[Rfam]
RNA sequence: AAAAAGGGCUUCUGCCGUGUGUGGCACGGGGGGGCGGCACGCCACCCCCGCGGAAUCGACAUCAAGAGAUUUCGGAAGCACAAUUUUUGGAAAUGAGGGCCGCCGGUAACCGCAUGUUCCGGCACCCCG
Numbered sequence: 001a002a003a004a005a006g007g008g009c010u011u012c013u014g015c016c017g018u019g020u021g022u023g024g025c026a027c028g029g030g031g032g033g034g035c036g037g038c039a040c041g042c043c044a045c046c047c048c049c050g051c052g053g054a055a056u057c058g059a060c061a062u063c064a065a066g067a068g069a070u071u072u073c074g075g076a077a078g079c080a081c082a083a084u085u086u087u088u089g090g091a092a093a094u095g096a097g098g099g100c101c102g103c104c105g106g107u108a109a110c111c112g113c114a115u116g117u118u119c120c121g122g123c124a125c126c127c128c129g
Stems, first nucleotide, its partner, number of pairs: 008079005013026005027050006033043004051074007097127003102123005108118003
RNA: U11 spliceosomal RNA